[Rfam]
RNA sequence: AGAGCCCCACGUGAAAGGAGUAGCUACACCAUCACGGCCCCGAGUUAUGCGCGGGCAGCUGCGAGGCCGCACGUGAAGCGAUGACAGGGGAAAACGCAGGCCAGCCAUUGAGCUCCGAAAUCACCCUUUCGGGGUGCCGACCGCGUGAACCGGAUUGGGAAGGCAACACGGUAAGACGGCGGAAGGUAGCGAGCCGUACACCGGCCCCGCGGAGUCAGAGAACC
Numbered sequence: 001a002g003a004g005c006c007c008c009a010c011g012u013g014a015a016a017g018g019a020g021u022a023g024c025u026a027c028a029c030c031a032u033c034a035c036g037g038c039c040c041c042g043a044g045u046u047a048u049g050c051g052c053g054g055g056c057a058g059c060u061g062c063g064a065g066g067c068c069g070c071a072c073g074u075g076a077a078g079c080g081a082u083g084a085c086a087g088g089g090g091a092a093a094a095c096g097c098a099g100g101c102c103a104g105c106c107a108u109u110g111a112g113c114u115c116c117g118a119a120a121u122c123a124c125c126c127u128u129u130c131g132g133g134g135u136g137c138c139g140a141c142c143g144c145g146u147g148a149a150c151c152g153g154a155u156u157g158g159g160a161a162g163g164c165a166a167c168a169c170g171g172u173a174a175g176a177c178g179g180c181g182g183a184a185g186g187u188a189g190c191g192a193g194c195c196g197u198a199c200a201c202c203g204g205c206c207c208c209g210c211g212g213a214g215u216c217a218g219a220g221a222a223c224c
Stems, first nucleotide, its partner, number of pairs: 010036005017030002020027001021192001023190002038090004044085004048080002050075004055070002058067003109218001110216001112215006130209006136164003141158003169203004176197005